A member of the RNA family "Xanthomonas sRNA sX9" from Xanthomonas oryzae, 76 nucleotides long. The family's consensus secondary structure was predicted with RNAalifold.
RNA sequence: CUGUGCCACGCGUACACUUGGGUUCUACGCGCGCGGUCCACGCCCACCUGACGACGGCUCGCUACGUGUGUUAGCU
Numbered sequence: 001c002u003g004u005g006c007c008a009c010g011c012g013u014a015c016a017c018u019u020g021g022g023u024u025c026u027a028c029g030c031g032c033g034c035g036g037u038c039c040a041c042g043c044c045c046a047c048c049u050g051a052c053g054a055c056g057g058c059u060c061g062c063u064a065c066g067u068g069u070g071u072u073a074g075c076u
Base pairs, nucleotide, nucleotide: 002016003015004014005013006012022034023033025031048074049073050072051071052070053069
Lineage of the source: Bacteria > Pseudomonadati > Gammaproteobacteria > Lysobacteraceae > Xanthomonas oryzae pv. oryzae. Rfam 15.1 lists 309 matches to the family in 52 species. For this family Rfam cites "Genome-wide transcriptome analysis of the plant pathogen Xanthomonas identifies sRNAs with putative virulence functions" (Schmidtke et al., Nucleic Acids Res, 2011).